This 114-nucleotide RNA from Ignelater luminosus belongs to the Rfam family "Potassium channel RNA editing signal". Pairs were carried over by alignment from the consensus structure, which is taken from published work. The match comes from Rfam's covariance-model search (92 bits). On this family, see Bhalla et al., Nat Struct Mol Biol 2004: "Control of human potassium channel inactivation by editing of a small mRNA hairpin".
RNA sequence: GUGGGUUAUGGUGAUAUGGUACCAAAAACUUAUAUUGGAAUGUUUGUUGGUGCUCUUUGUGCUUUAGCUGGUGUACUGACGAUUGCGUUACCAGUGCCUGUCAUAGUUUCAAAC
Numbered sequence: 001g002u003g004g005g006u007u008a009u010g011g012u013g014a015u016a017u018g019g020u021a022c023c024a025a026a027a028a029c030u031u032a033u034a035u036u037g038g039a040a041u042g043u044u045u046g047u048u049g050g051u052g053c054u055c056u057u058u059g060u061g062c063u064u065u066a067g068c069u070g071g072u073g074u075a076c077u078g079a080c081g082a083u084u085g086c087g088u089u090a091c092c093a094g095u096g097c098c099u100g101u102c103a104u105a106g107u108u109u110c111a112a113a114c
Base pairs, nucleotide, nucleotide: 001114002113005110008107009106011104013102014101015100016099018097021095022094037077038076040074049063050062051061